Rfam assigns this 99-nucleotide RNA from Flavobacterium sp. FPG59 to the family "Flavo-1 RNA". It scores 49 bits against the family's covariance model. NCBI's taxonomy places the organism under Bacteria, Pseudomonadati, Bacteroidota, Flavobacteriaceae, Flavobacterium.
RNA sequence: UUUUUGUGCGCGUGAGGGAUAGUAGUGGAGCUCUUUUUUUUGGGGUUGACUUUUUUGUCAAGCCAAAAAAAAAAGCGGGAACGAAUAGCCCGACCCCGC
Numbered sequence: 001u002u003u004u005u006g007u008g009c010g011c012g013u014g015a016g017g018g019a020u021a022g023u024a025g026u027g028g029a030g031c032u033c034u035u036u037u038u039u040u041u042g043g044g045g046u047u048g049a050c051u052u053u054u055u056u057g058u059c060a061a062g063c064c065a066a067a068a069a070a071a072a073a074a075g076c077g078g079g080a081a082c083g084a085a086u087a088g089c090c091c092g093a094c095c096c097c098g099c
Base pairs, nucleotide, nucleotide: 016091017090018089020087021086025082026081030076031075032074036071037070038069039068040067041066043064